[Rfam]
RNA sequence: AGCCAAUGAUGUUAAAUUUUGUUCGUAUCAUCUAAGAUCAACUCGUUGAUGAGUCUUUAAACAAAUUUCUGAGGCUA
Numbered sequence: 001a002g003c004c005a006a007u008g009a010u011g012u013u014a015a016a017u018u019u020u021g022u023u024c025g026u027a028u029c030a031u032c033u034a035a036g037a038u039c040a041a042c043u044c045g046u047u048g049a050u051g052a053g054u055c056u057u058u059a060a061a062c063a064a065a066u067u068u069c070u071g072a073g074g075c076u077a
Base pairs, nucleotide, nucleotide: 001076002075003074004073
Shown here is a 77-nucleotide sequence from Papaver nudicaule, a member of the family "small nucleolar RNA snoR117". The source organism's lineage runs through Eukaryota, Embryophyta, Tracheophyta, Papaveraceae and Papaver. The match comes from Rfam's covariance-model search (47 bits). On this family, see Chen and Wu, Nucleic Acids Res 2009: "Mining small RNA sequencing data: a new approach to identify small nucleolar RNAs in Arabidopsis".